c-di-AMP riboswitch aptamer (ydaO/yuaA leader): a 196-nucleotide RNA from Paenibacillus sp. OAS669.
RNA sequence: UUUCCAUUAUCGCUGAGUUUCCGUAAGGGAAACGGGGGAACCGCAAAAGGCCAGUCUUGAUUUGAAAAUAAGGCUAAGGUCACAUUUUCUGGGGUGAGUCUUGGAUGGGUAGAUGUUUGUUUACCCGGAUCCAAGUAGGGCGACUCUCAAGUCCGAAUCCGUCAGCUAACCUCGUAAGCGUUAAGAGAGAGGUAUG
Number, nucleotide and partner (000 for none) at each position: 001u000002u000003u000004c000005c000006a000007u000008u000009a000010u000011c180012g179013c178014u177015g000016a000017g000018u031019u030020u029021c000022c000023g000024u000025a000026a000027g000028g000029g020030a019031a018032a175033c174034g173035g172036g171037g170038g000039a000040a000041c000042c091043g090044c000045a000046a000047a000048a000049g000050g000051c000052c000053a000054g000055u000056c000057u000058u000059g000060a000061u000062u000063u000064g000065a000066a000067a000068a000069u000070a000071a000072g000073g000074c000075u000076a000077a000078g000079g000080u000081c000082a000083c000084a000085u000086u000087u000088u000089c000090u043091g042092g160093g159094g158095u000096g000097a000098g000099u000100c135101u134102u133103g132104g131105a130106u129107g000108g000109g000110u000111a000112g000113a000114u000115g000116u000117u000118u000119g000120u000121u000122u000123a000124c000125c000126c000127g000128g000129a106130u105131c104132c103133a102134a101135g100136u000137a000138g154139g153140g152141c151142g000143a000144c000145u000146c000147u000148c000149a000150a000151g141152u140153c139154c138155g000156a000157a000158u094159c093160c092161g000162u000163c000164a000165g000166c000167u000168a000169a000170c037171c036172u035173c034174g033175u032176a000177a014178g013179c012180g011181u000182u000183a000184a000185g000186a000187g000188a000189g000190a000191g000192g000193u000194a000195u000196g000